[Rfam]
MIR390 microRNA precursor family: a 108-nucleotide RNA from Musa acuminata. The base pairs follow the family's consensus structure, which was predicted with WAR. Its family is annotated with RISC complex and miRNA-mediated post-transcriptional gene silencing in the Gene Ontology.
RNA sequence: UGGAACAAUCUGUAAAGCUCAGGAGGGAUAGCGCCAUAGAUGGUGAGGAAGGAACUCUGUGUUCUCAUCCAAAUGCGCUAUCUAUCCUGAGCUUCAUGGAUUCUCCCU
Numbered sequence: 001u002g003g004a005a006c007a008a009u010c011u012g013u014a015a016a017g018c019u020c021a022g023g024a025g026g027g028a029u030a031g032c033g034c035c036a037u038a039g040a041u042g043g044u045g046a047g048g049a050a051g052g053a054a055c056u057c058u059g060u061g062u063u064c065u066c067a068u069c070c071a072a073a074u075g076c077g078c079u080a081u082c083u084a085u086c087c088u089g090a091g092c093u094u095c096a097u098g099g100a101u102u103c104u105c106c107c108u
Stems, first nucleotide, its partner, number of pairs: 010099001016093009026083009